[Rfam]
RNA: Small nucleolar RNA SNORD83
Organism: Salvator merianae
RNA sequence: GCCAGAUGAUGUCAACAUAGCUUUCAAGAGCACUUUGUGCGAAGAUGACUCUGAUCUAUCACCCAAGACUGAUGGCU
Numbered sequence: 001g002c003c004a005g006a007u008g009a010u011g012u013c014a015a016c017a018u019a020g021c022u023u024u025c026a027a028g029a030g031c032a033c034u035u036u037g038u039g040c041g042a043a044g045a046u047g048a049c050u051c052u053g054a055u056c057u058a059u060c061a062c063c064c065a066a067g068a069c070u071g072a073u074g075g076c077u
Stems, first nucleotide, its partner, number of pairs: 001076004030040004